[Rfam]
RNA: Singlet oxygen resistance RNA X
Organism: Puniceibacterium antarcticum
Nucleotides: 072
Base pairs, nucleotide, nucleotide: 008029009028010027011026012025013024014023047066048065049064050063051062052061053060054059
Number, partner (000 for none) and nucleotide at each position: 001000c002000c003000c004000c005000g006000u007000u008029g009028c010027a011026u012025g013024u014023g015000c016000g017000g018000g019000u020000a021000a022000u023014c024013a025012c026011a027010u028009g029008c030000a031000c032000c033000u034000c035000c036000c037000u038000g039000u040000u041000g042000g043000a044000c045000u046000g047066g048065c049064c050063c051062g052061g053060g054059c055000u056000g057000u058000u059054g060053c061052c062051c063050g064049g065048g066047c067000c068000u069000u070000u071000u072000u